Shown here is a 131-nucleotide sequence, a member of the family "EFASI RNA". It is one of the family's seed sequences. The family's RNA type in Rfam is small RNA. The family's consensus secondary structure is taken from published work.
RNA sequence: AUGAACCGGUAUCAGAGGGGGAUCUGGACGAUCCGGGGGAUAACCCGCGAAAGCGGGCGGCUGUUCUGAGAGCACAACCGACGCCCCGCCACACUUCAACGGCUGCCGCCCCGGCGCUCAGAUACCGUUCG
Number, nucleotide and partner (000 for none) at each position: 001a000002u131003g130004a129005a128006c000007c127008g126009g125010u124011a123012u122013c121014a000015g000016a000017g000018g000019g000020g034021g033022a032023u031024c030025u000026g000027g000028a000029c000030g024031a023032u022033c021034c020035g000036g087037g086038g085039g084040a000041u000042a000043a000044c057045c056046c055047g054048c053049g000050a000051a000052a000053g048054c047055g046056g045057g044058c080059g079060g078061c000062u074063g073064u072065u071066c070067u000068g000069a000070g066071a065072g064073c063074a062075c000076a000077a000078c060079c059080g058081a000082c000083g000084c039085c038086c037087c036088g000089c000090c000091a000092c000093a000094c000095u000096u000097c000098a000099a000100c000101g000102g000103c000104u000105g000106c000107c000108g000109c000110c000111c000112c000113g000114g000115c000116g000117c000118u000119c000120a000121g013122a012123u011124a010125c009126c008127g007128u005129u004130c003131g002